[Rfam]
RNA sequence: ACUUCCUGAGCCGGAACGAAAAGUCUUUAAGAAUGAGAGUUCUGGAGGGCUUUUGGCUUACGGUUGUGAUGUUGUGUUGUUGUGUUUGCAUUUGGUCUGCGAUUCAGACCAUCGUAGCUAAGCUACUCUUUCACUUCCUGUACAUUUACCCUGUCUGUCCAUAGUGAUUAAUGUAGCACCGCACUUUGCGGUGCUUUUUUUU
Numbered sequence: 001a002c003u004u005c006c007u008g009a010g011c012c013g014g015a016a017c018g019a020a021a022a023g024u025c026u027u028u029a030a031g032a033a034u035g036a037g038a039g040u041u042c043u044g045g046a047g048g049g050c051u052u053u054u055g056g057c058u059u060a061c062g063g064u065u066g067u068g069a070u071g072u073u074g075u076g077u078u079g080u081u082g083u084g085u086u087u088g089c090a091u092u093u094g095g096u097c098u099g100c101g102a103u104u105c106a107g108a109c110c111a112u113c114g115u116a117g118c119u120a121a122g123c124u125a126c127u128c129u130u131u132c133a134c135u136u137c138c139u140g141u142a143c144a145u146u147u148a149c150c151c152u153g154u155c156u157g158u159c160c161a162u163a164g165u166g167a168u169u170a171a172u173g174u175a176g177c178a179c180c181g182c183a184c185u186u187u188g189c190g191g192u193g194c195u196u197u198u199u200u201u202u
Stems, first nucleotide, its partner, number of pairs: 009058004015054002021052008030043005093111007114126005142174005175195008
A member of the RNA family "GcvB RNA" from Cronobacter sakazakii, 202 nucleotides long. On this family, see Urbanowski et al., Mol Microbiol 2000: "The gcvB gene encodes a small untranslated RNA involved in expression of the dipeptide and oligopeptide transport systems in Escherichia coli". Lineage of the source: Bacteria > Pseudomonadota > Gammaproteobacteria > Enterobacterales > Cronobacter sakazakii. The match comes from Rfam's covariance-model search (174 bits). Rfam's curators write: The gcvB gene encodes a small untranslated RNA involved in expression of the dipeptide and oligopeptide transport systems in Escherichia coli. Included several unknown homologues in alignment (Bateman A pers obs). It base-pairs with SorC. This interaction triggers the degradation of GcvB by RNase E, alleviating the GcvB-mediated mRNA repression of other amino acid-related transport and metabolic genes.